[Rfam]
Notes
The family of this 170-nucleotide sequence from Blautia sp. OF03-15BH is "Clostridiales-1 RNA". Rfam classes the family as a small RNA.
RNA sequence: UGAUGCUAGGGUCAAAAGGUCAAAAAGCCGUUCAUGCUUGCAUGAUAAGGCUUUUGAACUUGGGACCCGCCAAACAUGAGAAAGUAGCGAUUUACGCAGUAAAUCAGCGGAUUUCGAAUGUUUAUAGAAUUGCGGGAGCUGCUUUGCAGCGGAGCAAUUCGCAGGCAUCC
Numbered sequence: 001u002g003a004u005g006c007u008a009g010g011g012u013c014a015a016a017a018g019g020u021c022a023a024a025a026a027g028c029c030g031u032u033c034a035u036g037c038u039u040g041c042a043u044g045a046u047a048a049g050g051c052u053u054u055u056g057a058a059c060u061u062g063g064g065a066c067c068c069g070c071c072a073a074a075c076a077u078g079a080g081a082a083a084g085u086a087g088c089g090a091u092u093u094a095c096g097c098a099g100u101a102a103a104u105c106a107g108c109g110g111a112u113u114u115c116g117a118a119u120g121u122u123u124a125u126a127g128a129a130u131u132g133c134g135g136g137a138g139c140u141g142c143u144u145u146g147c148a149g150c151g152g153a154g155c156a157a158u159u160c161g162c163a164g165g166c167a168u169c170c
Stems, first nucleotide, its partner, number of pairs: 002169006010067004016061003020057003024054006031047001032045005072123006080115004087108002089105007127160007138150004